[Rfam]
RNA sequence: GGUCUGUGAUGUAUAGUAAAAGGUCUGAUUAUGCUAGGGCUUGCACUUCCAUGACCUUUUCUCCCAGCAUUUUCUCACCAGUCAUGGCACAGUAAUGGUGUGGCUGGCAGAGUGUGUGCUGACAGCUUGUGAUGUGUUCGGUUCAUGUUAACCUGAAGUAUCAGAGACGUGACUAGGAUCAGCAUCCAACAGUCUUUCUUGAAGGAGUUUGGGGUCUUGGAUUGUUACAACUGGGCAUGUGAUCUGACUUUUCUGCUGAGACC
Numbered sequence: 001g002g003u004c005u006g007u008g009a010u011g012u013a014u015a016g017u018a019a020a021a022g023g024u025c026u027g028a029u030u031a032u033g034c035u036a037g038g039g040c041u042u043g044c045a046c047u048u049c050c051a052u053g054a055c056c057u058u059u060u061c062u063c064c065c066a067g068c069a070u071u072u073u074c075u076c077a078c079c080a081g082u083c084a085u086g087g088c089a090c091a092g093u094a095a096u097g098g099u100g101u102g103g104c105u106g107g108c109a110g111a112g113u114g115u116g117u118g119c120u121g122a123c124a125g126c127u128u129g130u131g132a133u134g135u136g137u138u139c140g141g142u143u144c145a146u147g148u149u150a151a152c153c154u155g156a157a158g159u160a161u162c163a164g165a166g167a168c169g170u171g172a173c174u175a176g177g178a179u180c181a182g183c184a185u186c187c188a189a190c191a192g193u194c195u196u197u198c199u200u201g202a203a204g205g206a207g208u209u210u211g212g213g214g215u216c217u218u219g220g221a222u223u224g225u226u227a228c229a230a231c232u233g234g235g236c237a238u239g240u241g242a243u244c245u246g247a248c249u250u251u252u253c254u255g256c257u258g259a260g261a262c263c
Stems, first nucleotide, its partner, number of pairs: 001263004035246004040241001048221004053216002061207004065121006078107009129187001131186005144171006153164003
RNA: Small Cajal body specific RNA 6
Organism: Sula dactylatra